Flavo-1 RNA: a 73-nucleotide sequence from Polaribacter vadi. The family's RNA type in Rfam is small RNA.
[Rfam]
RNA sequence: UUUGCGUUAGCGAUUGAAAUGGCAUCCUUUUGCCUUUUUUAGGCAAAAGAUACAAUAGAAAGCGCGACCUUUU
Numbered sequence: 001u002u003u004g005c006g007u008u009a010g011c012g013a014u015u016g017a018a019a020u021g022g023c024a025u026c027c028u029u030u031u032g033c034c035u036u037u038u039u040u041a042g043g044c045a046a047a048a049g050a051u052a053c054a055a056u057a058g059a060a061a062g063c064g065c066g067a068c069c070u071u072u073u
Stems, first nucleotide, its partner, number of pairs: 010065003014061002019056002024051003030046006
Dot-bracket structure: .........(((.((...((...(((...((((((.....))))))..)))...))...)).)))........